[Rfam]
RNA sequence: CUUCGCUGGCCACCUCGGCGAAGAAAGGGUUUGGGAAACAACGACUUAUGCGCCUAGUGCAAGUCUCGUUUCCCGCUCCAAA
Numbered sequence: 001c002u003u004c005g006c007u008g009g010c011c012a013c014c015u016c017g018g019c020g021a022a023g024a025a026a027g028g029g030u031u032u033g034g035g036a037a038a039c040a041a042c043g044a045c046u047u048a049u050g051c052g053c054c055u056a057g058u059g060c061a062a063g064u065c066u067c068g069u070u071u072c073c074c075g076c077u078c079c080a081a082a
Base pairs, nucleotide, nucleotide: 001023002022003021004020005019006018007017008016009015029078032075033074034073035072036071037070038069039068043065044064045063
RNA: Proteobacterial sRNA sX8